The record is an 80-nucleotide RNA from Rosa chinensis, which matches "Small nucleolar RNA snoR53Y" in Rfam. By type it is a C/D-box small nucleolar RNA. Its family is annotated with RNA processing and nucleolus in the Gene Ontology. The match comes from Rfam's covariance-model search (66 bits). The literature on the family includes a 2001 paper in RNA by Brown et al., "Multiple snoRNA gene clusters from Arabidopsis". Taxonomically the source falls in Rosa (Eukaryota, Pentapetalae, rosids, Rosales).
RNA sequence: CUUCCCUGUGAUGUUUCAGUUUGAACCAUGCUAAUGCUGAUUAUUGCAUGAUCGAUAAUUUCAAAUGUUCUGAGGGAAGU
Numbered sequence: 001c002u003u004c005c006c007u008g009u010g011a012u013g014u015u016u017c018a019g020u021u022u023g024a025a026c027c028a029u030g031c032u033a034a035u036g037c038u039g040a041u042u043a044u045u046g047c048a049u050g051a052u053c054g055a056u057a058a059u060u061u062c063a064a065a066u067g068u069u070c071u072g073a074g075g076g077a078a079g080u
Stems, first nucleotide, its partner, number of pairs: 001079007